SAM riboswitch aptamer (S box leader): a 108-nucleotide RNA sequence from Clostridium ljungdahlii.
Rfam 15.1 lists 9,625 matches to the family in 4,158 species.
RNA sequence: CUUUUAUCAUGAGAGGUGGAGGGACUGGCCCAGUGAAACCCAACAACCGGCACUAAAGUGCAUCGGUGCUAAUUCCUGCAGAAUAAAACGAAUUCUGAAAGAUAGAAA
Numbered sequence: 001c002u003u004u005u006a007u008c009a010u011g012a013g014a015g016g017u018g019g020a021g022g023g024a025c026u027g028g029c030c031c032a033g034u035g036a037a038a039c040c041c042a043a044c045a046a047c048c049g050g051c052a053c054u055a056a057a058g059u060g061c062a063u064c065g066g067u068g069c070u071a072a073u074u075c076c077u078g079c080a081g082a083a084u085a086a087a088a089c090g091a092a093u094u095c096u097g098a099a100a101g102a103u104a105g106a107a108a
Stems, first nucleotide, its partner, number of pairs: 002107007013041001015040003021031003025078001027076002042070001044068002047066002050061003074100001079097006